[Rfam]
Nucleotides: 071
Stems, first nucleotide, its partner, number of pairs: 002069005
Number, partner (000 for none) and nucleotide at each position: 001000u002069g003068g004067a005066u006065c007000a008000a009000c010000u011000a012000u013000g014000a015000c016000c017000a018000c019000u020000g021000a022000u023000g024000a025000u026000g027000u028000a029000u030000g031000a032000u033000c034000c035000g036000g037000g038000a039000u040000c041000a042000u043000g044000a045000a046000u047000a048000c049000a050000g051000g052000u053000c054000u055000g056000g057000g058000a059000g060000u061000c062000u063000g064000a065006g066005g067004u068003u069002c070000a071000c
A member of the RNA family "Small nucleolar RNA SNORD113/SNORD114 family" from Cricetulus griseus, 71 nucleotides long. Gene Ontology terms of the family: nucleolus and RNA processing. The source organism's lineage runs through Eukaryota, Vertebrata, Mammalia, Glires and Cricetulus. The imprinted human domain at 14q32 contains two clusters of tandemly repeated small nucleolar RNAs named 14q(I) and 14q(II) snoRNAs. These two clusters are named SNORD113 and SNORD114 respectively in the HGNC approved gene symbol nomenclature. The snoRNAs found in both clusters are clearly related and are represented here by a single family.